[Rfam]
RNA sequence: GGCUCAUUAGCUCAGUUGGUUAGAGCGUCGUGCUAAUAACGCGAAGGUCGUGGGUUCGAUCCCCUCAUGAGCCA
Numbered sequence: 001g002g003c004u005c006a007u008u009a010g011c012u013c014a015g016u017u018g019g020u021u022a023g024a025g026c027g028u029c030g031u032g033c034u035a036a037u038a039a040c041g042c043g044a045a046g047g048u049c050g051u052g053g054g055u056u057c058g059a060u061c062c063c064c065u066c067a068u069g070a071g072c073c074a
Stems, first nucleotide, its partner, number of pairs: 001073007010026004028044005050066001052064003